[Rfam]
RNA sequence: AGUAUUUGAGGUAGAAAUUGUGCUACUAUACACCUUGAUACAAGGUUUAAGAGAUGUGGGGAGGGGCACUCCCACCAAAUGCU
Numbered sequence: 001a002g003u004a005u006u007u008g009a010g011g012u013a014g015a016a017a018u019u020g021u022g023c024u025a026c027u028a029u030a031c032a033c034c035u036u037g038a039u040a041c042a043a044g045g046u047u048u049a050a051g052a053g054a055u056g057u058g059g060g061g062a063g064g065g066g067c068a069c070u071c072c073c074a075c076c077a078a079a080u081g082c083u
Stems, first nucleotide, its partner, number of pairs: 001083008011029004020069005031051001032046004056075005
The record is an 83-nucleotide RNA, which matches "skipping-rope RNA" in Rfam. By type it is a small RNA. Pairs were carried over by alignment from the consensus structure, which is taken from published work.